[Rfam]
RNA sequence: CGUAUUAGCCGGGCUGUAGAGAUGCACGGUCCGGCUGAAUGUUUAUGCAUCGCAAUCAAUGAGGUGAUAUAUGGCACUUUCUGCCCAAGAGAAAGCACAGAUCGUUAAUGAUUUCCAGCAAGGUGAA
Numbered sequence: 001c002g003u004a005u006u007a008g009c010c011g012g013g014c015u016g017u018a019g020a021g022a023u024g025c026a027c028g029g030u031c032c033g034g035c036u037g038a039a040u041g042u043u044u045a046u047g048c049a050u051c052g053c054a055a056u057c058a059a060u061g062a063g064g065u066g067a068u069a070u071a072u073g074g075c076a077c078u079u080u081c082u083g084c085c086c087a088a089g090a091g092a093a094a095g096c097a098c099a100g101a102u103c104g105u106u107a108a109u110g111a112u113u114u115c116c117a118g119c120a121a122g123g124u125g126a127a
Stems, first nucleotide, its partner, number of pairs: 007036011061080006
The record is a 127-nucleotide RNA sequence from Marinobacter mobilis, which matches "Ribosomal S15 leader" in Rfam.
Clan: Ribosomal Protein S15 Leader clan.
Rfam classes the family as a cis-regulatory leader.
Its family is annotated with regulation of translation, ncRNA-mediated in the Gene Ontology.
A reference for the family is Benard et al. (1996), "Pseudoknot and translational control in the expression of the S15 ribosomal protein", Biochimie.
From the family's description: The E. coli Ribosomal S15 gene 5' UTR can form two alternative structures. One that is a series of three hairpins, The other includes a pseudoknot.
The organism belongs to Marinobacter, within Bacteria.